[Rfam]
RNA sequence: ACGUGCUCCGGGGUCGGUGAAAAUCCGAACCGGCGGUUAUAGUCCGCGACCCGCAGAUCUACCAGGAUGAAACAUCCGGGCAGUGAAGCGGUUGAACCGGUGGAAUUCCGGUACCGACGGUAAUGGGAAUGCGAAAGCUGUUCCCUCAGUCCGGAUGAGAGGAAGCACAG
Numbered sequence: 001a002c003g004u005g006c007u008c009c010g011g012g013g014u015c016g017g018u019g020a021a022a023a024u025c026c027g028a029a030c031c032g033g034c035g036g037u038u039a040u041a042g043u044c045c046g047c048g049a050c051c052c053g054c055a056g057a058u059c060u061a062c063c064a065g066g067a068u069g070a071a072a073c074a075u076c077c078g079g080g081c082a083g084u085g086a087a088g089c090g091g092u093u094g095a096a097c098c099g100g101u102g103g104a105a106u107u108c109c110g111g112u113a114c115c116g117a118c119g120g121u122a123a124u125g126g127g128a129a130u131g132c133g134a135a136a137g138c139u140g141u142u143c144c145c146u147c148a149g150u151c152c153g154g155a156u157g158a159g160a161g162g163a164a165g166c167a168c169a170g
Stems, first nucleotide, its partner, number of pairs: 003168005008162002015027003031116002033047004042114002051091004096112005118153003
About this RNA
This 170-nucleotide sequence from Homoserinimonas aerilata belongs to the Rfam family "FMN riboswitch aptamer (RFN element)". The RFN element is a highly conserved domain that is found frequently in the 5'-untranslated regions of prokaryotic mRNAs that encode for flavin mononucleotide (FMN) biosynthesis and transport proteins. This element is a metabolite-dependent riboswitch that directly binds FMN in the absence of proteins. In Bacillus subtilis, the riboswitch most likely controls gene expression by causing premature transcription termination within the 5' untranslated region of the ribDEAHT operon and precluding access to the ribosome-binding site of ypaA mRNA.The FMN riboswitch structure, reported in present an FMN-bound six-stem junction, adopts a butterfly-like scaffold, stapled together by opposingly directed but nearly identically folded peripheral domains. Its family is annotated with FMN binding in the Gene Ontology.